[Rfam]
RNA: Small nucleolar RNA Z221/R21b
Organism: Salix brachista
RNA sequence: GGGCAGUGAUGAGGAUUUUGAGAAAGUCAUGCACCACUCUGAUGUUUUCUGUGCUGAGAAAUUUCUCUUACCCAUAUAUUUCUGAGCCC
Number, nucleotide and partner (000 for none) at each position: 001g089002g088003g087004c086005a000006g000007u000008g000009a000010u000011g000012a000013g000014g000015a000016u000017u000018u000019u000020g000021a000022g000023a000024a000025a000026g000027u000028c000029a000030u000031g000032c000033a000034c000035c000036a000037c000038u000039c000040u000041g000042a000043u000044g000045u000046u000047u000048u000049c000050u000051g000052u000053g000054c000055u000056g000057a000058g000059a000060a000061a000062u000063u000064u000065c000066u000067c000068u000069u000070a000071c000072c000073c000074a000075u000076a000077u000078a000079u000080u000081u000082c000083u000084g000085a000086g004087c003088c002089c001